A member of the RNA family "Group I catalytic intron" from Mycena indigotica, 315 nucleotides long. About the family: Group I catalytic introns are large self-splicing ribozymes. They catalyse their own excision from mRNA, tRNA and rRNA precursors in a wide range of organisms. The core secondary structure consists of 9 paired regions (P1-P9).
RNA sequence: CAGAAAAAGUUAAAUUGUGGAUAGCUUUUGAGAGCGACCAUGAAAGUGGUUUGCUAGUGGGCAGUUAAUUACUGCCUGCGAGACUGUCAAAUUGCAGGAAAAUCCUUAGAGCCUUUGCUACCGCCUCUAUAUGGAAACGUAUAGCAGCGCACCAGGUUAAUUGCCUCGGGUAUGGUCAUAAUGCAAAGGAUUGGACAAUCUGCAGCCAAGUCCUAAGGGCGAAAAGCCUAUGGAACAGGUUCAACGACUAAAUGGCAGUCGGUCUUCAAGUAAUUGAAGGCUUAAGAUAUAGUCUGGCCCUUCAGAAAUGAAGCU
Numbered sequence: 001c002a003g004a005a006a007a008a009g010u011u012a013a014a015u016u017g018u019g020g021a022u023a024g025c026u027u028u029u030g031a032g033a034g035c036g037a038c039c040a041u042g043a044a045a046g047u048g049g050u051u052u053g054c055u056a057g058u059g060g061g062c063a064g065u066u067a068a069u070u071a072c073u074g075c076c077u078g079c080g081a082g083a084c085u086g087u088c089a090a091a092u093u094g095c096a097g098g099a100a101a102a103u104c105c106u107u108a109g110a111g112c113c114u115u116u117g118c119u120a121c122c123g124c125c126u127c128u129a130u131a132u133g134g135a136a137a138c139g140u141a142u143a144g145c146a147g148c149g150c151a152c153c154a155g156g157u158u159a160a161u162u163g164c165c166u167c168g169g170g171u172a173u174g175g176u177c178a179u180a181a182u183g184c185a186a187a188g189g190a191u192u193g194g195a196c197a198a199u200c201u202g203c204a205g206c207c208a209a210g211u212c213c214u215a216a217g218g219g220c221g222a223a224a225a226g227c228c229u230a231u232g233g234a235a236c237a238g239g240u241u242c243a244a245c246g247a248c249u250a251a252a253u254g255g256c257a258g259u260c261g262g263u264c265u266u267c268a269a270g271u272a273a274u275u276g277a278a279g280g281c282u283u284a285a286g287a288u289a290u291a292g293u294c295u296g297g298c299c300c301u302u303c304a305g306a307a308a309u310g311a312a313g314c315u
Base pairs, nucleotide, nucleotide: 001009082260083259084258085257086256088254089253093204094203095202096201097200098199103195104194105193205240206239211234212233213232218228219227220226244295246294247293248292249291250290262281263280264279265278266277267276268275269274300313301312302311303310304309
Dot-bracket structure: (.......)........................................................................(((((.((...((((((....(((.......................................................................................)))...))))))((....(((....(((.....)))...)))....))...[.[[[[[..)).))))).((((((((....))))))))........]]]]]]....(((((....)))))..
Source information: It scores 128 bits against the family's covariance model. Lineage of the source: Eukaryota > Agaricales > Marasmiineae > Mycenaceae > Mycena. The base pairs follow the family's consensus structure, which is taken from published work.